[Rfam]
RNA sequence: AGGACGGCACAGGUUUUCACCGUUUUCUCUGUCCUGGGUUCGGCCGAAGGCGAACGGUGACAGGCCGGGCCACGUCUC
Numbered sequence: 001a002g003g004a005c006g007g008c009a010c011a012g013g014u015u016u017u018c019a020c021c022g023u024u025u026u027c028u029c030u031g032u033c034c035u036g037g038g039u040u041c042g043g044c045c046g047a048a049g050g051c052g053a054a055c056g057g058u059g060a061c062a063g064g065c066c067g068g069g070c071c072a073c074g075u076c077u078c
Stems, first nucleotide, its partner, number of pairs: 001077002004075003009032004038070008
Notes:
Rfam assigns this 78-nucleotide RNA to the family "CyVA-1 RNA". Rfam classes the family as a small RNA. It is one of the family's seed sequences.